[Rfam]
RNA sequence: CGAGUACUGCCCGGUACGUGGCUUCGCAAAAUCCCUGAGGCUAUUCUUCAUCCUAGGGAGCUGUCCCUGCCCGGACCCUGGUCCGGAUCAUAUGGUUCCCACCUGACGUUUGUGGCGUCAGAGGAUUUCCGGCAAACGGCCAUGGUGGUCUCGU
Numbered sequence: 001c002g003a004g005u006a007c008u009g010c011c012c013g014g015u016a017c018g019u020g021g022c023u024u025c026g027c028a029a030a031a032u033c034c035c036u037g038a039g040g041c042u043a044u045u046c047u048u049c050a051u052c053c054u055a056g057g058g059a060g061c062u063g064u065c066c067c068u069g070c071c072c073g074g075a076c077c078c079u080g081g082u083c084c085g086g087a088u089c090a091u092a093u094g095g096u097u098c099c100c101a102c103c104u105g106a107c108g109u110u111u112g113u114g115g116c117g118u119c120a121g122a123g124g125a126u127u128u129c130c131g132g133c134a135a136a137c138g139g140c141c142a143u144g145g146u147g148g149u150c151u152c153g154u
Base pairs, nucleotide, nucleotide: 002152003151006149007148008147009146010145011144013141014140015139017138018137019136032125033124034123035121036120037119038118040116041115056100057099058098060096061095062094063093064092071086072085073084074083075082
Dot-bracket structure: .((..((((((.(((.(((............(((((((.((..............(((.(((((......(((((......))))).....))))).)))..............)).)))).)))..........))))))..)))))).))..

A member of the RNA family "6S / SsrS RNA" from Sphingomonas piscis, 154 nucleotides long. Pairs were carried over by alignment from the consensus structure, which is taken from published work. By type it is a non-coding RNA gene. From the family's description: E. coli 6S RNA was the first non coding RNA to be sequenced, but its function was unknown until recently. It scores 53 bits against the family's covariance model. Taxonomically the source falls in Sphingomonas (Bacteria, Pseudomonadati, Pseudomonadota, Sphingomonadales).